RNA sequence: CGUGUGGUGUCCGACAACAGAUCGGAUGGCGACACGGCCUAUAAUCGAGGU
Numbered sequence: 001c002g003u004g005u006g007g008u009g010u011c012c013g014a015c016a017a018c019a020g021a022u023c024g025g026a027u028g029g030c031g032a033c034a035c036g037g038c039c040u041a042u043a044a045u046c047g048a049g050g051u
Stems, first nucleotide, its partner, number of pairs: 001036005007030002011025004015020001
Source information
The family of this 51-nucleotide RNA sequence from Aeromonas tecta is "L31-Gammaproteobacteria ribosomal protein leader". The family's RNA type in Rfam is cis-regulatory leader. Rfam's curators put it in the seed alignment.